[Rfam]
RNA sequence: GCAUGGACGAAUUCUGUGUUACUCUGUCAGUAGUAAAUGCAGUCAGACACCAUGCAAAAGUAUUGUUUCACUCCUCUCUUAGUAAGGCUGAGUGCUCUCCUGUGUCUUAGCCAGUCAACGGAGGAGUGAACACACUG
Numbered sequence: 001g002c003a004u005g006g007a008c009g010a011a012u013u014c015u016g017u018g019u020u021a022c023u024c025u026g027u028c029a030g031u032a033g034u035a036a037a038u039g040c041a042g043u044c045a046g047a048c049a050c051c052a053u054g055c056a057a058a059a060g061u062a063u064u065g066u067u068u069c070a071c072u073c074c075u076c077u078c079u080u081a082g083u084a085a086g087g088c089u090g091a092g093u094g095c096u097c098u099c100c101u102g103u104g105u106c107u108u109a110g111c112c113a114g115u116c117a118a119c120g121g122a123g124g125a126g127u128g129a130a131c132a133c134a135c136u137g
Stems, first nucleotide, its partner, number of pairs: 001055006014042006067130003071126006078120001080118001082116001086112007
Dot-bracket structure: ((((((.......((((((.................)))))).......))))))...........(((.((((((.(.(.(...(((((((.............)))))))...).).))))))).))).......

A member of the RNA family "Small nucleolar RNA SNORA15" from Oncorhynchus tshawytscha, 137 nucleotides long. The organism belongs to Oncorhynchus, within Eukaryota. It scores 70 bits against the family's covariance model. The family has 22 seed sequences and 974 matches in Rfam 15.1. ACA15 is a member of the H/ACA class of snoRNA that guide the sites of modification of uridines to pseudouridines.